Source information
The record is a 48-nucleotide RNA sequence from Pseudaminobacter salicylatoxidans, which matches "Guanidine-II riboswitch aptamer (mini-ykkC)" in Rfam. It scores 41 bits against the family's covariance model. A reference for the family is Weinberg et al. (2007), "Identification of 22 candidate structured RNAs in bacteria using the CMfinder comparative genomics pipeline", Nucleic Acids Res. The organism belongs to Pseudaminobacter, within Bacteria. The family's consensus secondary structure is taken from published work.

RNA sequence: GCGAGAGGACGACCUCUCAACCGCAAUCGAACGACCGGGACGGCCCGG
Numbered sequence: 001g002c003g004a005g006a007g008g009a010c011g012a013c014c015u016c017u018c019a020a021c022c023g024c025a026a027u028c029g030a031a032c033g034a035c036c037g038g039g040a041c042g043g044c045c046c047g048g
Stems, first nucleotide, its partner, number of pairs: 003018006035048005

Gene Ontology term of the family: regulation of gene expression.